[Rfam]
RNA sequence: AUGCCUUAAACUGAUGAGUAAGGAAAAUAACGACGCGGGGUGACGCCCGUGUCCUCGUACAUUACGAGAUGAAUUUUUGAAGGGGUUCAGGUCUGCCUGCUGAGGUGACUCGCCUACUUUGCGAGAUGCCACGUGGGACUAGGACCUACCCC
Number, nucleotide and partner (000 for none) at each position: 001a000002u000003g000004c023005c022006u021007u020008a019009a000010a000011c000012u000013g000014a000015u000016g000017a000018g000019u008020a007021a006022g005023g004024a000025a000026a000027a000028u000029a000030a000031c000032g053033a052034c051035g050036c049037g048038g047039g046040g000041u000042g000043a000044c000045g000046c039047c038048c037049g036050u035051g034052u033053c032054c068055u067056c066057g065058u064059a000060c000061a000062u000063u000064a058065c057066g056067a055068g054069a000070u000071g000072a000073a000074u000075u000076u000077u000078u000079g000080a000081a000082g152083g151084g150085g149086u148087u000088c000089a147090g146091g145092u144093c143094u142095g000096c000097c000098u136099g000100c000101u000102g000103a000104g130105g129106u128107g127108a000109c125110u124111c123112g122113c121114c000115u000116a000117c000118u000119u000120u000121g113122c112123g111124a110125g109126a000127u107128g106129c105130c104131a000132c000133g000134u000135g000136g098137g000138a000139c000140u000141a000142g094143g093144a092145c091146c090147u089148a086149c085150c084151c083152c082
Notes
This 152-nucleotide sequence from Salarias fasciatus belongs to the Rfam family "U12 minor spliceosomal RNA". Taxonomically the source falls in Salarias (Eukaryota, Eumetazoa, Eurypterygia, Blenniimorphae). The literature on the family includes a 1997 paper in Trends Biochem Sci by Tarn and Steitz, "Pre-mRNA splicing: the discovery of a new spliceosome doubles the challenge".